[Rfam]
RNA: Small nucleolar RNA SNORD75
RNA sequence: AGUCAUGACAGUGUAAGAGUAGUGGACAGAAGGGAUUUCUAAAAUUUUUGAGACU
Numbered sequence: 001a002g003u004c005a006u007g008a009c010a011g012u013g014u015a016a017g018a019g020u021a022g023u024g025g026a027c028a029g030a031a032g033g034g035a036u037u038u039c040u041a042a043a044a045u046u047u048u049u050g051a052g053a054c055u
Stems, first nucleotide, its partner, number of pairs: 001055004